Rfam assigns this 75-nucleotide RNA from Eleutherodactylus coqui to the family "Small nucleolar RNA SNORD72". It scores 61 bits against the family's covariance model. snoRNA HBII-240 belongs to the CD family of snoRNAs. A reference for the family is Huttenhofer et al. (2001), "RNomics: an experimental approach that identifies 201 candidates for novel, small, non-messenger RNAs in mouse", EMBO J. Rfam classes the family as a C/D-box small nucleolar RNA. Rfam links the family to the GO terms RNA processing and nucleolus.
RNA sequence: UGCUUAUCCAUGAUGUCAUCAUAAAUGUCUGAACAAAUGACAUCCAGUGAUUUCAUGUUCCUACUGAGAUAAGCG
Numbered sequence: 001u002g003c004u005u006a007u008c009c010a011u012g013a014u015g016u017c018a019u020c021a022u023a024a025a026u027g028u029c030u031g032a033a034c035a036a037a038u039g040a041c042a043u044c045c046a047g048u049g050a051u052u053u054c055a056u057g058u059u060c061c062u063a064c065u066g067a068g069a070u071a072a073g074c075g
Stems, first nucleotide, its partner, number of pairs: 002074007
Dot-bracket structure: .(((((((...........................................................))))))).